[Rfam]
RNA sequence: UCGUUUUAUAAAGCGCCUGAACUAGCAGGAGAGAGCCUGGCUAGUUGACGAGGUGGAGGUUUAUCGAAAUGUUCGGCGGAUGCCUCCCGGUUGAUUUCUGCACAAUCGUCAGUCCUUCUUUAAAUCGUAAGGGUAACCUUGCGGACAAAGGGAAUGGAAAUGCGGAUA
Numbered sequence: 001u002c003g004u005u006u007u008a009u010a011a012a013g014c015g016c017c018u019g020a021a022c023u024a025g026c027a028g029g030a031g032a033g034a035g036c037c038u039g040g041c042u043a044g045u046u047g048a049c050g051a052g053g054u055g056g057a058g059g060u061u062u063a064u065c066g067a068a069a070u071g072u073u074c075g076g077c078g079g080a081u082g083c084c085u086c087c088c089g090g091u092u093g094a095u096u097u098c099u100g101c102a103c104a105a106u107c108g109u110c111a112g113u114c115c116u117u118c119u120u121u122a123a124a125u126c127g128u129a130a131g132g133g134u135a136a137c138c139u140u141g142c143g144g145a146c147a148a149a150g151g152g153a154a155u156g157g158a159a160a161u162g163c164g165g166a167u168a
Base pairs, nucleotide, nucleotide: 020046021045022044023043024042025041026040029037055087056086057085058084059083064076065075066074067073088108089107090106091105092104093103113158114157115156116154117153118152126143127142128141129140130139131138132137
The family of this 168-nucleotide sequence from Bacillus aerolatus is "glmS glucosamine-6-phosphate activated ribozyme aptamer". This entry contains a glucosamine-6-phosphate activated ribozyme that is found in the mRNA for GlmS. GlmS is an enzyme that uses fructose-6-phosphate and glutamine to generate glucosamine-6-phosphate. Lineage of the source: Bacteria > Bacillati > Bacillota > Bacilli > Bacillus. The match comes from Rfam's covariance-model search (122 bits). The base pairs follow the family's consensus structure, which is taken from published work.